[Rfam]
RNA sequence: AGCCCGUAAUGGGCUCGCAUUCUGCGUGUUAAUAGCGUUUUCCGAUGGCCUGGGAGCGUGGUUAGUGAAUC
Numbered sequence: 001a002g003c004c005c006g007u008a009a010u011g012g013g014c015u016c017g018c019a020u021u022c023u024g025c026g027u028g029u030u031a032a033u034a035g036c037g038u039u040u041u042c043c044g045a046u047g048g049c050c051u052g053g054g055a056g057c058g059u060g061g062u063u064a065g066u067g068a069a070u071c
Base pairs, nucleotide, nucleotide: 001015002014003013004012005011029065030064031063032062033061035059036058037057039056040055041054042053043052044051

L13-Bacteroidia ribosomal protein leader: a 71-nucleotide sequence. Pairs were carried over by alignment from the consensus structure, which is taken from published work. The literature on the family includes a 2020 paper in BMC Microbiol by Eckert and Weinberg, "Discovery of 20 novel ribosomal leader candidates in bacteria and archaea". The family's RNA type in Rfam is cis-regulatory leader.